Overview
The family of this 64-nucleotide RNA sequence from Equus caballus is "mir-143 microRNA precursor family". Gene Ontology terms of the family: miRNA-mediated post-transcriptional gene silencing and RISC complex.
RNA sequence: GCCCGAGGUGCAGUGCUGCAUCUCUGGUCAGUUGGGAGUCUGAGAUGAAGCACUGUAGCUCAGG
Numbered sequence: 001g002c003c004c005g006a007g008g009u010g011c012a013g014u015g016c017u018g019c020a021u022c023u024c025u026g027g028u029c030a031g032u033u034g035g036g037a038g039u040c041u042g043a044g045a046u047g048a049a050g051c052a053c054u055g056u057a058g059c060u061c062a063g064g
Stems, first nucleotide, its partner, number of pairs: 002064002007059001009057009019047006026040002028037002
The family has 30 seed sequences and 657 matches in Rfam 15.1.
The source organism's lineage runs through Eukaryota, Bilateria, Amniota, Theria and Equus.